The record is a 132-nucleotide RNA sequence from Capra hircus, which matches "Small nucleolar RNA SNORA61" in Rfam. ACA61 is a member of the H/ACA class of snoRNA that guide the sites of modification of uridines to pseudouridines. A search with the family's covariance model found it, with a score of 76 bits.

RNA sequence: ACCCUCCAGUGCCCUUUCCCAUCGGAUCUGAAUUCUGGUCUCAGUGGUCAUAUUAAUAAAAGGUGAAAUAGUAGCACUGAAGCUGUGCUCAUAGUAUCUGCUAUGUAGCAUGUGGGCUAAUUUCAAACAAGG
Numbered sequence: 001a002c003c004c005u006c007c008a009g010u011g012c013c014c015u016u017u018c019c020c021a022u023c024g025g026a027u028c029u030g031a032a033u034u035c036u037g038g039u040c041u042c043a044g045u046g047g048u049c050a051u052a053u054u055a056a057u058a059a060a061a062g063g064u065g066a067a068a069u070a071g072u073a074g075c076a077c078u079g080a081a082g083c084u085g086u087g088c089u090c091a092u093a094g095u096a097u098c099u100g101c102u103a104u105g106u107a108g109c110a111u112g113u114g115g116g117c118u119a120a121u122u123u124c125a126a127a128c129a130a131g132g
Base pairs, nucleotide, nucleotide: 004065006063007062019047020046021045022044025040026039027038028037084119085118087117088116089115090114092110
It is annotated as an H/ACA-box small nucleolar RNA.